[Rfam]
RNA sequence: CUGUCCGAGGAGCGUUGCAGCCUGCCAGCACACUGACCGCGUCAAUCACCGCAUUGACCCGCCCAGAUGGCAAGUGAGGCUCGGACACCAGGAACCGCCGGCCGCUGAAGCCGCCGCGCCAGCCCUGCAUCUCAACCGCGCUCACCCACU
Numbered sequence: 001c002u003g004u005c006c007g008a009g010g011a012g013c014g015u016u017g018c019a020g021c022c023u024g025c026c027a028g029c030a031c032a033c034u035g036a037c038c039g040c041g042u043c044a045a046u047c048a049c050c051g052c053a054u055u056g057a058c059c060c061g062c063c064c065a066g067a068u069g070g071c072a073a074g075u076g077a078g079g080c081u082c083g084g085a086c087a088c089c090a091g092g093a094a095c096c097g098c099c100g101g102c103c104g105c106u107g108a109a110g111c112c113g114c115c116g117c118g119c120c121a122g123c124c125c126u127g128c129a130u131c132u133c134a135a136c137c138g139c140g141c142u143c144a145c146c147c148a149c150u
Stems, first nucleotide, its partner, number of pairs: 002087007021074001023072004

SAH (S-adenosyl-L-homocysteine) riboswitch aptamer: a 150-nucleotide RNA sequence from Haliea sp. Rfam links the family to the GO terms regulation of gene expression and S-adenosylhomocysteine metabolic process. The family has 52 seed sequences and 1,354 matches in Rfam 15.1. The base pairs follow the family's consensus structure, which is taken from published work.